[Rfam]
Nucleotides: 523
Stems, first nucleotide, its partner, number of pairs: 001517002004515005010508001012441007020086009091506003095503005100349004109377002114344003118341002120134005135149001136147004150339002155337002157333003171280002173276009288306006308328001309326007353398003357389002360386002368382001370380002405424008
Number, partner (000 for none) and nucleotide at each position: 001517a002516g003000u004515g005514u006513a007512g008511g009000c010508g011000a012441g013440g014439c015438g016437g017436u018435u019000g020086c021085g022084g023083a024082u025081g026080a027079u028078g029000a030000g031000c032000c033000u034000g035000u036000g037000c038000u039000u040000g041000c042000u043000u044000g045000g046000g047000c048000u049000g050000g051000c052000u053000g054000u055000g056000g057000c058000c059000g060000g061000u062000u063000c064000a065000a066000g067000g068000g069000g070000c071000g072000a073000u074000c075000g076000g077000u078028c079027g080026u081025c082024a083023u084022c085021u086020g087000a088000g089000g090000a091506a092505a093504g094000u095503c096502c097501g098500g099499g100349c101348u102347u103346c104000c105000g106000a107000a108000a109377g110376a111000c112000c113000a114344g115343g116342c117000u118341u119340g120134c121133u122132g123131g124130g125000u126000a127000a128000c129000g130124c131123c132122c133121a134120g135149u136147g137146c138145g139144a140000g141000c142000g143000a144139u145138c146137g147136u148000g149135a150339g151338g152000a153000u154000a155337g156336u157333g158332c159331c160000a161000c162000a163000g164000a165000a166000a167000a168000a169000u170000a171280c172279c173276g174275c175274c176273g177272a178271g179270c180269c181268a182000c183000c184000g185000a186000g187000c188000c189000g190000c191000u192000u193000a194000a195000a196000a197000a198000u199000u200000c201000c202000c203000c204000a205000c206000c207000c208000a209000a210000a211000c212000u213000g214000u215000c216000c217000c218000a219000c220000u221000u222000u223000g224000c225000u226000g227000c228000g229000g230000c231000a232000g233000a234000a235000g236000a237000u238000u239000g240000u241000u242000u243000u244000c245000g246000g247000u248000g249000a250000c251000u252000g253000a254000a255000u256000u257000g258000u259000u260000a261000a262000c263000g264000g265000c266000u267000c268181u269180g270179g271178c272177u273176c274175g275174g276173u277000a278000a279172g280171g281000g282000u283000g284000c285000a286000a287000a288306g289305g290304u291303g292302c293301g294000g295000u296000a297000a298000g299000a300000g301293c302292g303291c304290a305289c306288c307000a308328g309326c310325a311324g312323c313322a314321u315320c316000g317000a318000g319000a320315g321314g322313u323312g324311c325310u326309g327000g328308c329000u330000c331159g332158g333157u334000a335000a336156a337155c338151c339150c340119c341118g342116g343115c344114c345000g346103g347102a348101a349100g350000c351000a352000a353398g354397g355396u356000g357389a358388g359000g360386g361385g362000c363000a364000a365000g366000g367000g368382u369000u370380g371379g372000u373000c374000u375000u376110u377109u378000u379371c380370c381000u382368g383000u384000c385361c386360c387000g388358c389357u390000u391000u392000g393000a394000g395000a396355a397354c398353c399000g400000c401000u402000u403000g404000a405424g406423g407422c408421g409420a410419u411418c412417g413000g414000u415000a416000a417412c418411g419410a420409u421408c422407g423406u424405c425000c426000c427000a428000g429000a430000u431000a432000g433000a434000u435018a436017a437016c438015c439014g440013c441012c442000c443000a444000u445000u446000g447000a448000u449000u450000g451000g452000c453000c454000c455000u456000u457000g458000g459000c460000g461000u462000g463000c464000g465000g466000c467000u468000u469000g470000c471000u472000g473000u474000g475000c476000u477000c478000c479000g480000a481000g482000g483000c484000c485000a486000a487000u488000u489000g490000a491000g492000g493000a494000c495000a496000g497000a498000a499099c500098c501097c502096g503095g504093c505092u506091u507000a508010c509000g510000u511008c512007c513006u514005g515004c516002c517001u518000c519000u520000c521000c522000u523000u